[Rfam]
RNA sequence: ACGCAGGAAGCCGAAAAUGCGGACAAAGAGUAGGCG
Numbered sequence: 001a002c003g004c005a006g007g008a009a010g011c012c013g014a015a016a017a018u019g020c021g022g023a024c025a026a027a028g029a030g031u032a033g034g035c036g
Stems, first nucleotide, its partner, number of pairs: 002021004010035003

A member of the RNA family "DUF805b RNA", 36 nucleotides long. The family is grouped with related families in Rfam's "DUF805 clan". It is one of the family's seed sequences.